[Rfam]
RNA sequence: AAAUGAGAUGAUGAACAAAGUGUAUGGUUUGAUUCACCAGAAUGACGGUGUAUUCUCACAUUGUAUUCGUACUGUCUGAUCAUCU
Numbered sequence: 001a002a003a004u005g006a007g008a009u010g011a012u013g014a015a016c017a018a019a020g021u022g023u024a025u026g027g028u029u030u031g032a033u034u035c036a037c038c039a040g041a042a043u044g045a046c047g048g049u050g051u052a053u054u055c056u057c058a059c060a061u062u063g064u065a066u067u068c069g070u071a072c073u074g075u076c077u078g079a080u081c082a083u084c085u
Base pairs, nucleotide, nucleotide: 003083004082005081031057035050036049037048038047
Shown here is an 85-nucleotide RNA sequence from Carnegiea gigantea, a member of the family "Small nucleolar RNA Z102/R77". Rfam classes the family as a C/D-box small nucleolar RNA. Rfam 15.1 lists 1,346 matches to the family in 224 species. For this family Rfam cites "The high diversity of snoRNAs in plants: identification and comparative study of 120 snoRNA genes from Oryza sativa" (Chen et al., Nucleic Acids Res, 2003). The base pairs follow the family's consensus structure, which was predicted with PFOLD.